[Rfam]
RNA sequence: UGUGGGAAAUGAUGAUAAACAUUUUCCAGAGGUUGUUUCUGAGGGUAGAUUAAAUCUACCUGUGAUUAAUCCUUGCACGUCAGUCUGAUCCUGCC
Number, nucleotide and partner (000 for none) at each position: 001u000002g094003u093004g092005g091006g090007a089008a000009a000010u000011g000012a000013u000014g000015a000016u000017a000018a000019a000020c000021a000022u000023u000024u000025u000026c000027c000028a000029g000030a000031g000032g000033u000034u000035g000036u000037u000038u000039c000040u000041g000042a000043g000044g000045g000046u000047a000048g000049a000050u000051u000052a000053a000054a000055u000056c000057u000058a000059c000060c000061u000062g000063u000064g000065a000066u000067u000068a000069a000070u000071c000072c000073u000074u000075g000076c000077a000078c000079g000080u000081c000082a000083g000084u000085c000086u000087g000088a000089u007090c006091c005092u004093g003094c002095c000
The family of this 95-nucleotide sequence from Brachypodium distachyon is "Small nucleolar RNA Z122". By type it is a C/D-box small nucleolar RNA.